[Rfam]
RNA: SAM riboswitch aptamer (S box leader)
RNA sequence: UUCUUAUCGAGAGAGGCGGAGGGAACUGGCCCGAAGAAGUCUCAGCAACCGGUACAAGGACGGCGGCAUGAUAACCUUUGUACCAAGGUGCUAAAUCCAGCAAGCAUUUUGCCGUAAGAUAUGCUUGGAAGAUAAGAA
Dot-bracket structure: ((((((((....(((((...(((..[[[[)))......)))))((((.(((((((((((................)))))))))..))))))...(]]]]((((((...............))))))..)))))))))